[Rfam]
RNA: Small nucleolar RNA U109
Organism: Suricata suricatta
RNA sequence: UUUCUUGUGGAAACGUAUCCUCCUUAUUCCUUUAUUAGCAGGACUGUAUUCAUAACGUGCUACAUUUUAAAAGGAGUUCUCAAAGCUGCUGAUCUUACAGUAGUGGUUGAGUGUAGCCGAUGUCUCCUACAUAA
Numbered sequence: 001u002u003u004c005u006u007g008u009g010g011a012a013a014c015g016u017a018u019c020c021u022c023c024u025u026a027u028u029c030c031u032u033u034a035u036u037a038g039c040a041g042g043a044c045u046g047u048a049u050u051c052a053u054a055a056c057g058u059g060c061u062a063c064a065u066u067u068u069a070a071a072a073g074g075a076g077u078u079c080u081c082a083a084a085g086c087u088g089c090u091g092a093u094c095u096u097a098c099a100g101u102a103g104u105g106g107u108u109g110a111g112u113g114u115a116g117c118c119g120a121u122g123u124c125u126c127c128u129a130c131a132u133a134a
Base pairs, nucleotide, nucleotide: 004059006057007056008055016042018040020038021037073127074126075125076124085114086113089111090109091108092107093106094105096103